The family of this 113-nucleotide sequence from Rhodococcus sp. P1Y is "TPP riboswitch aptamer (THI element)". A search with the family's covariance model found it, with a score of 57 bits. The family's consensus secondary structure is taken from published work. Its family is annotated with thiamine pyrophosphate binding in the Gene Ontology. The organism belongs to Rhodococcus, within Bacteria.

RNA sequence: UCGUAACGACACGGGAGUCCUGGGGUACGCGGGGCUGAGAGUGGACACGCCCGUCCUUACCGUCAAUACCUGAACCGGAUCAUGCCGGCGCAGGGAGUGAGGUGGGUCAGGAA
Number, nucleotide and partner (000 for none) at each position: 001u000002c000003g000004u000005a000006a000007c000008g000009a098010c097011a063012c062013g061014g060015g000016a057017g035018u034019c033020c032021u031022g000023g000024g000025g000026u000027a000028c000029g000030c000031g021032g020033g019034g018035c017036u000037g000038a000039g000040a000041g000042u000043g056044g055045a054046c053047a000048c000049g000050c000051c000052c000053g046054u045055c044056c043057u016058u000059a000060c014061c013062g012063u011064c000065a000066a000067u000068a000069c094070c093071u092072g091073a000074a000075c088076c087077g086078g085079a000080u000081c000082a000083u000084g000085c078086c077087g076088g075089c000090g000091c072092a071093g070094g069095g000096a000097g010098u009099g000100a000101g000102g000103u000104g000105g000106g000107u000108c000109a000110g000111g000112a000113a000